[Rfam]
RNA sequence: ACGCCCCUGCCGGCAGCGCGCCAUGGGCGCCGGGAUUCCCGGCGUCACCACGUCCGUUGCCGGAUGGUCUUCUGAACUGAGGCGUCAUG
Numbered sequence: 001a002c003g004c005c006c007c008u009g010c011c012g013g014c015a016g017c018g019c020g021c022c023a024u025g026g027g028c029g030c031c032g033g034g035a036u037u038c039c040c041g042g043c044g045u046c047a048c049c050a051c052g053u054c055c056g057u058u059g060c061c062g063g064a065u066g067g068u069c070u071u072c073u074g075a076a077c078u079g080a081g082g083c084g085u086c087a088u089g
Stems, first nucleotide, its partner, number of pairs: 001085005010063004015058004020053002025049002027045007065079003

The record is an 89-nucleotide RNA from Streptomyces lunaelactis, which matches "dauA ncRNA motif" in Rfam. On this family, see Narunsky et al., Nucleic Acids Res 2024: "The discovery of novel noncoding RNAs in 50 bacterial genomes". Gene Ontology term of the family: regulation of gene expression. The family's RNA type in Rfam is cis-regulatory element. Rfam describes the family as follows. dauA ncRNA motif was reported as a strong cis regulatory motif candidate, with potential to be a cis regulatory riboswitch type, it have been identified in genomes of the genus Streptomyces.